Rfam assigns this 304-nucleotide RNA from Gouania willdenowi to the family "Nuclear RNase P".

RNA sequence: GUGGGUGGAAGCUCAUUGUAGAGGUCACGUGCUGAGUGCUCGUCACUCGUCCAAUCGCCUCGGGGAAGGUCUGAGACAAGAGCCAAUCGCUGCCCUCACAGGGCAUCACCUGAUUCGGGUGAGCGAGUGAACAGAAAUACUGGGCCGGUGCCUGUAAUACUCACAGGAGAAGCCAGAGGGCGCUGAUUGGCUCCCUGGUGGAUGUGUAUCAGGCUGGUUUGGAAUCGCUCGCGGCUGGCGAAUGAGUCCGAUGUAUGAGGUGGAGCACUGCUCCAGAACCCAAUUCAGACUACUCUCCAUUCAC
Numbered sequence: 001g002u003g004g005g006u007g008g009a010a011g012c013u014c015a016u017u018g019u020a021g022a023g024g025u026c027a028c029g030u031g032c033u034g035a036g037u038g039c040u041c042g043u044c045a046c047u048c049g050u051c052c053a054a055u056c057g058c059c060u061c062g063g064g065g066a067a068g069g070u071c072u073g074a075g076a077c078a079a080g081a082g083c084c085a086a087u088c089g090c091u092g093c094c095c096u097c098a099c100a101g102g103g104c105a106u107c108a109c110c111u112g113a114u115u116c117g118g119g120u121g122a123g124c125g126a127g128u129g130a131a132c133a134g135a136a137a138u139a140c141u142g143g144g145c146c147g148g149u150g151c152c153u154g155u156a157a158u159a160c161u162c163a164c165a166g167g168a169g170a171a172g173c174c175a176g177a178g179g180g181c182g183c184u185g186a187u188u189g190g191c192u193c194c195c196u197g198g199u200g201g202a203u204g205u206g207u208a209u210c211a212g213g214c215u216g217g218u219u220u221g222g223a224a225u226c227g228c229u230c231g232c233g234g235c236u237g238g239c240g241a242a243u244g245a246g247u248c249c250g251a252u253g254u255a256u257g258a259g260g261u262g263g264a265g266c267a268c269u270g271c272u273c274c275a276g277a278a279c280c281c282a283a284u285u286c287a288g289a290c291u292a293c294u295c296u297c298c299a300u301u302c303a304c
Base pairs, nucleotide, nucleotide: 001304002303003302004301007298008297009296012259013258014257015256016255021061022060023059024058034048035047036046037045038044071288072287073286074285075284081236082235083234084233091105092104093103094102095101106122107121108120109119110118111117123232124231125230126229127228128227129226144218145217146216147215148214149213261275262274263273264272265271266270

Lineage of the source: Eukaryota > Teleostomi > Actinopterygii > Acanthomorphata > Gouania. Clan: RNaseP clan.